[Rfam]
The record is an 81-nucleotide RNA from Dreissena polymorpha, which matches "mir-31 microRNA precursor family" in Rfam. Rfam 15.1 lists 1,181 matches to the family in 783 species. Lineage of the source: Eukaryota > Bilateria > Imparidentia > Dreissenoidea > Dreissena. The literature on the family includes a 2010 paper in Genes Dev by Chiang et al., "Mammalian microRNAs: experimental evaluation of novel and previously annotated genes". Gene Ontology terms of the family: gene silencing by miRNA and RISC complex.

RNA sequence: GGGUUAACAUCAGGCAAGAUGUUGGCAUAGCUGAGUCCGAUCGUGAAUCAGCUGUGUCACAUGAUGCCAUGUGUAAUCUCA
Numbered sequence: 001g002g003g004u005u006a007a008c009a010u011c012a013g014g015c016a017a018g019a020u021g022u023u024g025g026c027a028u029a030g031c032u033g034a035g036u037c038c039g040a041u042c043g044u045g046a047a048u049c050a051g052c053u054g055u056g057u058c059a060c061a062u063g064a065u066g067c068c069a070u071g072u073g074u075a076a077u078c079u080c081a
Stems, first nucleotide, its partner, number of pairs: 005076001007074004013068004019062003023059009